[Rfam]
RNA sequence: CCAACAAACACAUGAAAGAAUGCUCAACAUCAUUUCUCUAAUGAUUAAUGAUGUUGAGCAUUCUUUCAUGUGUUUGUUGGC
Numbered sequence: 001c002c003a004a005c006a007a008a009c010a011c012a013u014g015a016a017a018g019a020a021u022g023c024u025c026a027a028c029a030u031c032a033u034u035u036c037u038c039u040a041a042u043g044a045u046u047a048a049u050g051a052u053g054u055u056g057a058g059c060a061u062u063c064u065u066u067c068a069u070g071u072g073u074u075u076g077u078u079g080g081c
Stems, first nucleotide, its partner, number of pairs: 002079006009072007017064005023058004028053003
mir-87 microRNA precursor family: an 81-nucleotide RNA sequence from Physeter macrocephalus. Pairs were carried over by alignment from the consensus structure, which was predicted with RNAalifold. A search with the family's covariance model found it, with a score of 49 bits. The literature on the family includes a 2003 paper in Dev Biol by Sempere et al., "Temporal regulation of microRNA expression in Drosophila melanogaster mediated by hormonal signals and broad-Complex gene activity". Gene Ontology terms of the family: RISC complex and miRNA-mediated post-transcriptional gene silencing.